[Rfam]
RNA: ZMP/ZTP riboswitch aptamer (pfl RNA motif)
Organism: Lentihominibacter faecis
RNA sequence: GAUUUGUUAUACGACUGACGGUAUUUAAAGUGGAACAGACCACGUGGAGUAUAAUGAGAAGAAGAGAGCCGACCGUCUGGGCUGCAUAA
Numbered sequence: 001g002a003u004u005u006g007u008u009a010u011a012c013g014a015c016u017g018a019c020g021g022u023a024u025u026u027a028a029a030g031u032g033g034a035a036c037a038g039a040c041c042a043c044g045u046g047g048a049g050u051a052u053a054a055u056g057a058g059a060a061g062a063a064g065a066g067a068g069c070c071g072a073c074c075g076u077c078u079g080g081g082c083u084g085c086a087u088a089a
Stems, first nucleotide, its partner, number of pairs: 003058010015046001017077005030043004067083004
Dot-bracket structure: ..((((((((((..(.[[[[[........((((......))))..)..))))))))))........((((..]]]]]..))))......